[Rfam]
RNA: Mitochondrial DNA control region secondary structure A
Organism: Pan troglodytes
RNA sequence: UGUAUUCUGGUAAAGCACCCAUUUGGGUAUAACCCAAGUAUUGACCUGCCCCAUUAAUAAUUUUCUGUAUAUUGUGCAUUACUGCUAGCCAACAUGAAUAUUAUAUA
Number, nucleotide and partner (000 for none) at each position: 001u000002g000003u098004a000005u097006u096007c000008u094009g093010g000011u000012a000013a000014a000015g085016c084017a083018c000019c000020c000021a000022u000023u037024u036025g035026g034027g033028u032029a000030u000031a000032a028033c027034c026035c025036a024037a023038g061039u060040a000041u057042u056043g055044a054045c000046c000047u000048g000049c000050c000051c000052c000053a000054u044055u043056a042057a041058u000059a000060a039061u038062u000063u000064u000065c000066u078067g077068u076069a075070u000071a000072u000073u000074g000075u069076g068077c067078a066079u000080u000081a000082c000083u017084g016085c015086u000087a000088g000089c000090c000091a000092a000093c009094a008095u000096g006097a005098a003099u000100a000101u000102u000103a000104u000105a000106u000107a000